A member of the RNA family "Actinobacteria sRNA Ms_IGR-5" from Microlunatus endophyticus, 206 nucleotides long. Taxonomically the source falls in Microlunatus (Bacteria, Actinomycetota, Actinomycetes, Propionibacteriales). By type it is a small RNA. A reference for the family is Li et al. (2013), "Identification of small RNAs in Mycobacterium smegmatis using heterologous Hfq", RNA.
RNA sequence: ACACACGGAAAGGAGGUGGUCCGAUCAAUGAAUGACUUACGGACUUGUGAGGUGGUGGCUAGCUAGCCGCCCUUGGACUUGAUUCAGCUGGUCUGGAUCACUGGCCGUGCAGCGGCCGGCUAAUCCAAAGCCAACACCCGAACCCGCGAGUGCCGGAUUUGUCCCCCGGCCUUCGGAUCUCUCACCUCCCACGAGGCCCGCUCUCC
Numbered sequence: 001a002c003a004c005a006c007g008g009a010a011a012g013g014a015g016g017u018g019g020u021c022c023g024a025u026c027a028a029u030g031a032a033u034g035a036c037u038u039a040c041g042g043a044c045u046u047g048u049g050a051g052g053u054g055g056u057g058g059c060u061a062g063c064u065a066g067c068c069g070c071c072c073u074u075g076g077a078c079u080u081g082a083u084u085c086a087g088c089u090g091g092u093c094u095g096g097a098u099c100a101c102u103g104g105c106c107g108u109g110c111a112g113c114g115g116c117c118g119g120c121u122a123a124u125c126c127a128a129a130g131c132c133a134a135c136a137c138c139c140g141a142a143c144c145c146g147c148g149a150g151u152g153c154c155g156g157a158u159u160u161g162u163c164c165c166c167c168g169g170c171c172u173u174c175g176g177a178u179c180u181c182u183c184a185c186c187u188c189c190c191a192c193g194a195g196g197c198c199c200g201c202u203c204u205c206c
Stems, first nucleotide, its partner, number of pairs: 015060003019056002061121004066116002069113002074107003139200002143196002145193002148190001150188001152170005